This 105-nucleotide sequence from Streptococcus downei belongs to the Rfam family "Glycine riboswitch aptamer". The organism belongs to Streptococcus downei, within Bacteria.
[Rfam]
RNA sequence: UUCUGGAGAGAUUUUCUCUGUGCUGACCAAGCUGUUAAGUGCAGAGAGAACGCCGAAGGGGCAAGGUAGCCUAGACUACUCAAACUCUCAGGCAAAAGGACAGAA
Numbered sequence: 001u002u003c004u005g006g007a008g009a010g011a012u013u014u015u016c017u018c019u020g021u022g023c024u025g026a027c028c029a030a031g032c033u034g035u036u037a038a039g040u041g042c043a044g045a046g047a048g049a050a051c052g053c054c055g056a057a058g059g060g061g062c063a064a065g066g067u068a069g070c071c072u073a074g075a076c077u078a079c080u081c082a083a084a085c086u087c088u089c090a091g092g093c094a095a096a097a098g099g100a101c102a103g104a105a
Stems, first nucleotide, its partner, number of pairs: 001105005012050013052093003055089002059087003065080005